Small nucleolar RNA snoR104: a 116-nucleotide RNA from Argiope bruennichi. The base pairs follow the family's consensus structure, which was predicted with WAR. For this family Rfam cites "Experimental RNomics: identification of 140 candidates for small non-messenger RNAs in the plant Arabidopsis thaliana" (Marker et al., Curr Biol, 2002). It is annotated as an H/ACA-box small nucleolar RNA. Rfam links the family to the GO terms nucleolus and RNA processing.
RNA sequence: GGAGGUGCAGUUGAAGUGGUAUUGUUCCUCCGAUACAACUUUCCAAUAUUAAAUGACUUAAAGAACAUGUUCCUAAAGUUUAAGUUAAUUUUGGAACCUACAUUUAAGUCAAUAAA
Numbered sequence: 001g002g003a004g005g006u007g008c009a010g011u012u013g014a015a016g017u018g019g020u021a022u023u024g025u026u027c028c029u030c031c032g033a034u035a036c037a038a039c040u041u042u043c044c045a046a047u048a049u050u051a052a053a054u055g056a057c058u059u060a061a062a063g064a065a066c067a068u069g070u071u072c073c074u075a076a077a078g079u080u081u082a083a084g085u086u087a088a089u090u091u092u093g094g095a096a097c098c099u100a101c102a103u104u105u106a107a108g109u110c111a112a113u114a115a116a
Stems, first nucleotide, its partner, number of pairs: 001031003005027001007025005056109003069097004074093003078089003